[Rfam]
RNA sequence: GAACACCCGCACGGCAAAGCGUAGCGAGCCGCCGUUAGCGAGUCUUGGGUGUUGUCUGGUAACAGGCAGGGCUAAGCGUAGACAGCAAGGAAGCAGGGUUGCAAUGCUAUAGAGCCCCGAAAUUUUACAAAGUCUCAGAGGCCGACGCAGUCUAACCAUGCGGAAGGCAGUAUCAUGACAUGCGAUAGCGCGAGUGUGUUGUGGCUCUGGCGGGGUCAGAGGGCC
Numbered sequence: 001g002a003a004c005a006c007c008c009g010c011a012c013g014g015c016a017a018a019g020c021g022u023a024g025c026g027a028g029c030c031g032c033c034g035u036u037a038g039c040g041a042g043u044c045u046u047g048g049g050u051g052u053u054g055u056c057u058g059g060u061a062a063c064a065g066g067c068a069g070g071g072c073u074a075a076g077c078g079u080a081g082a083c084a085g086c087a088a089g090g091a092a093g094c095a096g097g098g099u100u101g102c103a104a105u106g107c108u109a110u111a112g113a114g115c116c117c118c119g120a121a122a123u124u125u126u127a128c129a130a131a132g133u134c135u136c137a138g139a140g141g142c143c144g145a146c147g148c149a150g151u152c153u154a155a156c157c158a159u160g161c162g163g164a165a166g167g168c169a170g171u172a173u174c175a176u177g178a179c180a181u182g183c184g185a186u187a188g189c190g191c192g193a194g195u196g197u198g199u200u201g202u203g204g205c206u207c208u209g210g211c212g213g214g215g216u217c218a219g220a221g222g223g224c225c
Base pairs, nucleotide, nucleotide: 011035012034013033014032019029020028022193024191025190038086039085042083043082044081045080046078047077048073049072050071052069053068054067055066056065057064058063112217114216115215116214117213118212119211135210136209137208138207139206140205141168142167143166146162147161148160149159173204174203175202176201177200178199179198180197181196182195183194
Overview:
Group II catalytic intron D1-D4-6: a 225-nucleotide RNA sequence from Hungatella hathewayi. The family has 174 seed sequences and 1,617 matches in Rfam 15.1. Lineage of the source: Bacteria > Bacillati > Bacillota > Lachnospirales > Hungatella. Group II introns are found in rRNA, tRNA and mRNA of organelles in fungi, plants and protists, and also in mRNA in bacteria. Pairs were carried over by alignment from the consensus structure. The literature on the family includes a 2001 paper in Trends Genet by Bonen and Vogel, "The ins and outs of group II introns". A search with the family's covariance model found it, with a score of 164 bits.